Record summary:
Ribosomal protein L10 leader: a 148-nucleotide RNA from Eubacterium sp. CAG:251. Rfam classes the family as a cis-regulatory leader. Taxonomically the source falls in Eubacterium (Bacteria, Bacillati, Clostridia, Eubacteriaceae). Rfam describes the family as follows. This family is a putative r-protein leader autoregulatory structure found in B. subtilis and other low-GC Gram-positive bacteria. The base pairs follow the family's consensus structure, which was predicted with CMfinder. It scores 74 bits against the family's covariance model.

RNA sequence: AAUACAAUAGCUGUUCAGCCAAAGACAGCAGGUGCCGAUACGGCGUAAGUUUUCGCCUGCCGAGGAAUGGACAUUCAAGUAGCAUUAUGUUAUUUUGAUGUUUUACGUGCAUUCCGAGGUUCUCGGAGUGCACUUUUUUGUUAUAGCU
Numbered sequence: 001a002a003u004a005c006a007a008u009a010g011c012u013g014u015u016c017a018g019c020c021a022a023a024g025a026c027a028g029c030a031g032g033u034g035c036c037g038a039u040a041c042g043g044c045g046u047a048a049g050u051u052u053u054c055g056c057c058u059g060c061c062g063a064g065g066a067a068u069g070g071a072c073a074u075u076c077a078a079g080u081a082g083c084a085u086u087a088u089g090u091u092a093u094u095u096u097g098a099u100g101u102u103u104u105a106c107g108u109g110c111a112u113u114c115c116g117a118g119g120u121u122c123u124c125g126g127a128g129u130g131c132a133c134u135u136u137u138u139u140g141u142u143a144u145a146g147c148u
Stems, first nucleotide, its partner, number of pairs: 028060006034044003107133010